[Rfam]
RNA sequence: GACGGGGAUUAUAUAUUGCAUGAGUUUCUCGGACACCAUGACGGUAGCUUCAUACCUUUGGUAUGUUGUCAUGGCUGCAUGACGUACAUCGCAGGGGUAAUGAGUCGACC
Numbered sequence: 001g002a003c004g005g006g007g008a009u010u011a012u013a014u015a016u017u018g019c020a021u022g023a024g025u026u027u028c029u030c031g032g033a034c035a036c037c038a039u040g041a042c043g044g045u046a047g048c049u050u051c052a053u054a055c056c057u058u059u060g061g062u063a064u065g066u067u068g069u070c071a072u073g074g075c076u077g078c079a080u081g082a083c084g085u086a087c088a089u090c091g092c093a094g095g096g097g098u099a100a101u102g103a104g105u106c107g108a109c110c
Stems, first nucleotide, its partner, number of pairs: 003031005010024001012022001043110003047105004053099008061090001063089004067084007